[Rfam]
RNA sequence: GUGAAAUGAUGAUGACGUUUAUCCAUUCUCUGAGUGCAGCUGCUCUUCCCUUCCUGUCACAUUGAGGCUUCAGUUCUGUAGCCUCAAUGUUCUGUGGCUUCCAAACAUCUUCCAGGCUUCCAGUGUUCUACUGGAGCUUGUGAGUGUGUUUGGCUGGCUACUGACUGGGUCUGGGCAGAAAAAGCAGAGCCAGACCCCUUUCAUGUGGGGUUCUGACUCAACUAAGAAGAAUGAAGCUGUCUGAUCAC
Numbered sequence: 001g002u003g004a005a006a007u008g009a010u011g012a013u014g015a016c017g018u019u020u021a022u023c024c025a026u027u028c029u030c031u032g033a034g035u036g037c038a039g040c041u042g043c044u045c046u047u048c049c050c051u052u053c054c055u056g057u058c059a060c061a062u063u064g065a066g067g068c069u070u071c072a073g074u075u076c077u078g079u080a081g082c083c084u085c086a087a088u089g090u091u092c093u094g095u096g097g098c099u100u101c102c103a104a105a106c107a108u109c110u111u112c113c114a115g116g117c118u119u120c121c122a123g124u125g126u127u128c129u130a131c132u133g134g135a136g137c138u139u140g141u142g143a144g145u146g147u148g149u150u151u152g153g154c155u156g157g158c159u160a161c162u163g164a165c166u167g168g169g170u171c172u173g174g175g176c177a178g179a180a181a182a183a184g185c186a187g188a189g190c191c192a193g194a195c196c197c198c199u200u201u202c203a204u205g206u207g208g209g210g211u212u213c214u215g216a217c218u219c220a221a222c223u224a225a226g227a228a229g230a231a232u233g234a235a236g237c238u239g240u241c242u243g244a245u246c247a248c
Stems, first nucleotide, its partner, number of pairs: 010247004017240002024233006030226002034222002039185003044179003048175003053169003056165002059090011071078001094161006107147002109144001113140005119135007187219003191215004196210004
A member of the RNA family "Small nucleolar RNA SNORD17" from Python bivittatus, 248 nucleotides long.
About the family: The snoRNA HBI-43 belongs to the C/D family of snoRNAs, guiding 2'O-ribose methylation at position U3797 of the 28S rRNA. Pseudouridylation in position U3797 is predicted to be guided by the H/ACA snoRNA ACA48.
A search with the family's covariance model found it, with a score of 129 bits.
Gene Ontology terms of the family: RNA processing and nucleolus.
It is annotated as a C/D-box small nucleolar RNA.